[Rfam]
RNA sequence: UGAAAGUCCCAGACAGCAGCCAUGAAACGGACCGUGUUUACAUGGGAUAGUUCAUGGCUAUUGGAUAGGCUAACCUGUAUGAACAAGGAGAUCGACCGCUCGGAUUGUGAAUACAGGUGGCCAUUACGAGAGCACUAAAGUGCGGAGCAAUCGACUUUUA
Numbered sequence: 001u002g003a004a005a006g007u008c009c010c011a012g013a014c015a016g017c018a019g020c021c022a023u024g025a026a027a028c029g030g031a032c033c034g035u036g037u038u039u040a041c042a043u044g045g046g047a048u049a050g051u052u053c054a055u056g057g058c059u060a061u062u063g064g065a066u067a068g069g070c071u072a073a074c075c076u077g078u079a080u081g082a083a084c085a086a087g088g089a090g091a092u093c094g095a096c097c098g099c100u101c102g103g104a105u106u107g108u109g110a111a112u113a114c115a116g117g118u119g120g121c122c123a124u125u126a127c128g129a130g131a132g133c134a135c136u137a138a139a140g141u142g143c144g145g146a147g148c149a150a151u152c153g154a155c156u157u158u159u160a
Base pairs, nucleotide, nucleotide: 001160002159003158004157005156006155007154008069009068011066015062016061018059019058020057021056022055023054024053025052026051029048032045033044034043035042036041073118074117075116076115077114078113079112080111083108084107085106086105090101091100093098121153123151124150125149127147132143133142134141135140

The family of this 160-nucleotide RNA from Clostridiales bacterium CHKCI001 is "Clostridiales-1 RNA". The organism belongs to Eubacteriales, within Bacteria. The family's RNA type in Rfam is small RNA. A search with the family's covariance model found it, with a score of 79 bits. The family's consensus secondary structure is taken from published work.